Small nucleolar RNA Z152/R70/R12/: a 101-nucleotide RNA sequence from Genlisea aurea.
[Rfam]
RNA sequence: UCUGCAAUGAUGAGAUAAAGCACCAUUUGGAGGUGUUUAUUGGGCAGUGGAUUCAUAUCCGUGAGCCUAUCAAAUAACGACUUCUCCUUCCACUGAGCAAA
Numbered sequence: 001u002c003u004g005c006a007a008u009g010a011u012g013a014g015a016u017a018a019a020g021c022a023c024c025a026u027u028u029g030g031a032g033g034u035g036u037u038u039a040u041u042g043g044g045c046a047g048u049g050g051a052u053u054c055a056u057a058u059c060c061g062u063g064a065g066c067c068u069a070u071c072a073a074a075u076a077a078c079g080a081c082u083u084c085u086c087c088u089u090c091c092a093c094u095g096a097g098c099a100a101a
Base pairs, nucleotide, nucleotide: 001101003099004098005097

Taxonomically the source falls in Genlisea (Eukaryota, Mesangiospermae, asterids, Lamiales). The family's RNA type in Rfam is C/D-box small nucleolar RNA.